About this RNA:
A member of the RNA family "MIR403 microRNA precursor family" from Salix brachista, 122 nucleotides long. The literature on the family includes a 2009 paper in BMC Genomics by Mica et al., "High throughput approaches reveal splicing of primary microRNA transcripts and tissue specific expression of mature microRNAs in Vitis vinifera". Rfam links the family to the GO terms RISC complex and miRNA-mediated post-transcriptional gene silencing. The base pairs follow the family's consensus structure, which was predicted with WAR.

RNA sequence: GCAUAUUUCAGGUUUGUGCAUGAAUCUAAUAUAACUAAUAAAAUCCCAUCAAACUCAAAUCAAUAGCACCCAGCACUAGUUUAGUGUAGUAUUAGAUUCACGCACAAACUCGUAAUCUGUCU
Number, nucleotide and partner (000 for none) at each position: 001g120002c119003a118004u000005a116006u115007u114008u000009c000010a000011g110012g109013u108014u107015u106016g105017u104018g103019c102020a000021u100022g099023a098024a097025u096026c095027u000028a093029a092030u091031a000032u000033a000034a000035c089036u088037a000038a000039u000040a000041a000042a000043a000044u000045c000046c079047c000048a077049u000050c000051a000052a000053a000054c000055u000056c000057a000058a000059a000060u000061c000062a000063a000064u000065a000066g000067c000068a000069c000070c000071c000072a000073g000074c000075a000076c000077u048078a000079g046080u000081u000082u000083a000084g000085u000086g000087u000088a036089g035090u000091a030092u029093u028094a000095g026096a025097u024098u023099c022100a021101c000102g019103c018104a017105c016106a015107a014108a013109c012110u011111c000112g000113u000114a007115a006116u005117c000118u003119g002120u001121c000122u000